Shown here is a 368-nucleotide sequence from Desertihabitans brevis, a member of the family "transfer-messenger RNA". It is annotated as a non-coding RNA gene.
RNA sequence: GGGGGUGAUCGGUUUCGACUUGGGACAGUCGUCCCAGGGGAAGCGGGCCGAGGAUCCAAGGUCAACUCGUUGAUGCUCCUUGGAAACCAACAAGUGCCGACUCUAAGCGCACUGACUUCGCUCUCGCUGCCUGAGCAGUGACCGAAGGGUCAGACCGGGUGCCGUCUCCGACCCGGACCCUGGCCUCAUCAAGGAGACUUGCUCGUCGCGGUAGGUCCUAGGGCGCGACGGGGACUUCACUAGGGCUGGGCCUGUCCACGACGUGCUGGCGCGAGCGUGGGGGCCGAGAAACCGACUAGCCAGCUGCGCCCGGAGAAGCCCUGGUUCACUUUCCGAGGACGCGGGUUCGAUUCCCGCCACCUCCACCC
Number, nucleotide and partner (000 for none) at each position: 001g364002g363003g362004g361005g360006u359007g358008a000009u000010c000011g000012g000013u000014u000015u000016c000017g000018a000019c337020u336021u335022g334023g333024g332025a331026c000027a000028g000029u000030c000031g327032u000033c000034c324035c323036a322037g321038g320039g319040g000041a000042a000043g000044c312045g311046g310047g309048c308049c069050g068051a067052g066053g000054a000055u084056c083057c082058a081059a080060g079061g078062u000063c000064a000065a000066c052067u051068c050069g049070u000071u000072g000073a000074u000075g000076c000077u000078c061079c060080u059081u058082g057083g056084a055085a000086a000087c000088c000089a000090a000091c000092a000093a000094g000095u000096g000097c000098c000099g000100a000101c000102u000103c000104u000105a000106a000107g000108c000109g000110c000111a000112c000113u000114g000115a000116c000117u000118u000119c000120g000121c000122u000123c000124u141125c140126g139127c138128u137129g136130c135131c000132u000133g000134a000135g130136c129137a128138g127139u126140g125141a124142c000143c000144g000145a000146a000147g000148g185149g184150u183151c182152a181153g180154a000155c176156c175157g174158g173159g172160u171161g000162c000163c000164g198165u197166c196167u195168c194169c193170g000171a160172c159173c158174c157175g156176g155177a000178c000179c000180c153181u152182g151183g150184c149185c148186u000187c000188a000189u000190c000191a000192a000193g169194g168195a167196g166197a165198c164199u000200u000201g000202c232203u231204c230205g229206u228207c227208g226209c225210g224211g000212u000213a000214g000215g247216u000217c245218c244219u243220a000221g000222g000223g000224c210225g209226c208227g207228a206229c205230g204231g203232g202233g000234a000235c000236u000237u000238c000239a000240c000241u000242a000243g219244g218245g217246c000247u215248g000249g285250g284251c283252c282253u281254g000255u000256c280257c279258a278259c000260g000261a000262c273263g272264u000265g304266c303267u302268g301269g000270c000271g296272c263273g262274a000275g000276c000277g000278u258279g257280g256281g253282g252283g251284c250285c249286g000287a000288g000289a000290a000291a000292c000293c000294g000295a000296c271297u000298a000299g000300c000301c268302a267303g266304c265305u000306g000307c000308g048309c047310c046311c045312g044313g000314a000315g000316a000317a000318g000319c039320c038321c037322u036323g035324g034325u000326u000327c031328a000329c000330u000331u025332u024333c023334c022335g021336a020337g019338g000339a000340c000341g357342c356343g355344g354345g353346u000347u000348c000349g000350a000351u000352u000353c345354c344355c343356g342357c341358c007359a006360c005361c004362u003363c002364c001365a000366c000367c000368c000
The source organism's lineage runs through Bacteria, Bacillati, Actinomycetota, Propionibacteriales and Desertihabitans. The family's consensus secondary structure is taken from published work.